[Rfam]
RNA sequence: AAGCAGUACUCUGUGGCAGAUUAUCAAAAUAGUCUGGCACAAUUUGAGCUUGCUACAACAAGAAAAUGUAACCUAUUCCAGUGCUCUCACCUCUGUGACCCAAGGCGUUACCUAGACUUAAACUGU
Numbered sequence: 001a002a003g004c005a006g007u008a009c010u011c012u013g014u015g016g017c018a019g020a021u022u023a024u025c026a027a028a029a030u031a032g033u034c035u036g037g038c039a040c041a042a043u044u045u046g047a048g049c050u051u052g053c054u055a056c057a058a059c060a061a062g063a064a065a066a067u068g069u070a071a072c073c074u075a076u077u078c079c080a081g082u083g084c085u086c087u088c089a090c091c092u093c094u095g096u097g098a099c100c101c102a103a104g105g106c107g108u109u110a111c112c113u114a115g116a117c118u119u120a121a122a123c124u125g126u
Stems, first nucleotide, its partner, number of pairs: 009048003012041004017036006064119002067116001069114002076110001079107001082104001090097001
The family of this 126-nucleotide RNA sequence from Octodon degus is "Small nucleolar RNA SNORA28". It scores 87 bits against the family's covariance model. Rfam links the family to the GO terms RNA processing and nucleolus. The source organism's lineage runs through Eukaryota, Euteleostomi, Tetrapoda, Eutheria and Octodon. The family is grouped with related families in Rfam's "SNORA28 clan". The literature on the family includes a 2001 paper in EMBO J by Huttenhofer et al., "RNomics: an experimental approach that identifies 201 candidates for novel, small, non-messenger RNAs in mouse".